RNA sequence: GGGCCGGCUAUAGCCCAGCGGUUACUUCGGUGUUUCACAACUUCGUUCGAACCCAGCGAGUGGUUCGGUCCCGCGGGCACCUCUGG
Numbered sequence: 001g002g003g004c005c006g007g008c009u010a011u012a013g014c015c016c017a018g019c020g021g022u023u024a025c026u027u028c029g030g031u032g033u034u035u036c037a038c039a040a041c042u043u044c045g046u047u048c049g050a051a052c053c054c055a056g057c058g059a060g061u062g063g064u065u066c067g068g069u070c071c072c073g074c075g076g077g078c079a080c081c082u083c084u085g086g
Stems, first nucleotide, its partner, number of pairs: 004086004013078004018074004027068004
RNA: Vault RNA